[Rfam]
RNA sequence: AUUGCCCUCGAAUAACUCAAUGUUUGGGAUUGAUCUCCAUUUGGUUCAGACAGGGGCAUAUAACAAUGGUUUUGAGCUUGUUUAUCAGAUUGAUUAUUGUUUAUUAAUCUUCUGAAAUUAGUUUGAAGUUAAGGAGCUUUGAACUUU
Numbered sequence: 001a002u003u004g005c006c007c008u009c010g011a012a013u014a015a016c017u018c019a020a021u022g023u024u025u026g027g028g029a030u031u032g033a034u035c036u037c038c039a040u041u042u043g044g045u046u047c048a049g050a051c052a053g054g055g056g057c058a059u060a061u062a063a064c065a066a067u068g069g070u071u072u073u074g075a076g077c078u079u080g081u082u083u084a085u086c087a088g089a090u091u092g093a094u095u096a097u098u099g100u101u102u103a104u105u106a107a108u109c110u111u112c113u114g115a116a117a118u119u120a121g122u123u124u125g126a127a128g129u130u131a132a133g134g135a136g137c138u139u140u141g142a143a144c145u146u147u
Base pairs, nucleotide, nucleotide: 003058004057005056006055007054008053014046015045016044017043019041020040021039026037027036028035072141074139075138076137077136080118081117082116085115086114087113092109093108094107095106096105124135
Rfam assigns this 147-nucleotide RNA sequence from Artemisia annua to the family "Small nucleolar RNA snoR138". It scores 44 bits against the family's covariance model. By type it is an H/ACA-box small nucleolar RNA. Gene Ontology terms of the family: nucleolus and RNA processing.